[Rfam]
Nucleotides: 117
Stems, first nucleotide, its partner, number of pairs: 004112001006110006018033004035086003038082002042080003048073004
Number, partner (000 for none) and nucleotide at each position: 001000c002000g003000a004112u005000g006110c007109c008108u009107c010106u011105g012000g013000a014000a015000a016000g017000c018033g019032g020031u021030g022000a023000c024000a025000a026000u027000g028000u029000u030021c031020a032019c033018c034000c035086g036085c037084c038082g039081a040000u041000g042080g043079g044078g045000a046000a047000a048073g049072a050071c051070a052000u053000g054000u055000u056000g057000g058000g059000c060000u061000u062000a063000g064000c065000g066000c067000a068000g069000c070051u071050g072049u073048c074000g075000a076000a077000u078044c079043u080042c081039u082038c083000a084037g085036g086035c087000g088000c089000c090000c091000g092000g093000c094000u095000c096000g097000g098000g099000u100000a101000g102000g103000g104000a105011c106010a107009g108008a109007g110006g111000g112004a113000g114000a115000g116000g117000a
Overview: The record is a 117-nucleotide RNA from Mycobacterium noviomagense, which matches "Glycine riboswitch aptamer" in Rfam. The source organism's lineage runs through Bacteria, Actinomycetota, Actinomycetes, Mycobacteriales and Mycobacterium.